A member of the RNA family "c-di-GMP-I riboswitch aptamer" from Sporobacter termitidis, 109 nucleotides long. Its family is annotated with cyclic-di-GMP binding in the Gene Ontology. GEMM was predicted in a large-scale screen for bacterial structured RNA regulatory elements. Genes associated with GEMM are involved in a diverse array of functions, including chemotaxis regulation, signal transduction, secretion and chitin.

[Rfam]
RNA sequence: AAACGAUAAUGGCAAACCUGUUGAAAAGCAGGGACGCAAAGCUAUGGGUCUAAGGUUCUGAUGUCAGCCGCGGAGGCUUGACGGGGGACUAUGACAGCCGGUUGCCGAA
Numbered sequence: 001a002a003a004c005g006a007u008a009a010u011g012g013c014a015a016a017c018c019u020g021u022u023g024a025a026a027a028g029c030a031g032g033g034a035c036g037c038a039a040a041g042c043u044a045u046g047g048g049u050c051u052a053a054g055g056u057u058c059u060g061a062u063g064u065c066a067g068c069c070g071c072g073g074a075g076g077c078u079u080g081a082c083g084g085g086g087g088a089c090u091a092u093g094a095c096a097g098c099c100g101g102u103u104g105c106c107g108a109a
Base pairs, nucleotide, nucleotide: 012037013036017032018031019030020029021028022027040103041102042101043100046099047098048095049094050093055089056088057087058086